About this RNA:
The family of this 155-nucleotide part of an RNA from Chironomus tentans is "Eukaryotic large subunit ribosomal RNA". The sequence is in the family's curated seed alignment. Pairs were carried over by alignment from the consensus structure, which is taken from published work. Gene Ontology terms of the family: structural constituent of ribosome and ribosome.
RNA sequence: GCUUGUGGCCGCCAAGCGUUCAUAGCGACGUGGCUUUUUGAUCCUUCGAUGUCGGCUCUUCCUAUCAUUGUGAAGCAAAAUUCACAAAGCGUAGGAUUGUUCACCCUUUCAAGGGAACGUGAGCUGGGUUUAGACCGUCGUGAGACAGGUUAGUU
Numbered sequence: 001g002c003u004u005g006u007g008g009c010c011g012c013c014a015a016g017c018g019u020u021c022a023u024a025g026c027g028a029c030g031u032g033g034c035u036u037u038u039u040g041a042u043c044c045u046u047c048g049a050u051g052u053c054g055g056c057u058c059u060u061c062c063u064a065u066c067a068u069u070g071u072g073a074a075g076c077a078a079a080a081u082u083c084a085c086a087a088a089g090c091g092u093a094g095g096a097u098u099g100u101u102c103a104c105c106c107u108u109u110c111a112a113g114g115g116a117a118c119g120u121g122a123g124c125u126g127g128g129u130u131u132a133g134a135c136c137g138u139c140g141u142g143a144g145a146c147a148g149g150u151u152a153g154u155u
Stems, first nucleotide, its partner, number of pairs: 001042001003040001005039001007035006016026002053127001054125004058119001059116005066091001069086006093107003097103001133151004137146003